[Rfam]
RNA sequence: UGAUAGCGUAGAAGCGUGAGGUUGCUACCCUGCGAGGUAGGUUUUCCGUGGAGCGAAUGUCAAGUUAAGAAACUGACGACAA
Numbered sequence: 001u002g003a004u005a006g007c008g009u010a011g012a013a014g015c016g017u018g019a020g021g022u023u024g025c026u027a028c029c030c031u032g033c034g035a036g037g038u039a040g041g042u043u044u045u046c047c048g049u050g051g052a053g054c055g056a057a058u059g060u061c062a063a064g065u066u067a068a069g070a071a072a073c074u075g076a077c078g079a080c081a082a
Stems, first nucleotide, its partner, number of pairs: 014049003018046004025040005058081004064077004
RNA: S10-Clostridia ribosomal protein leader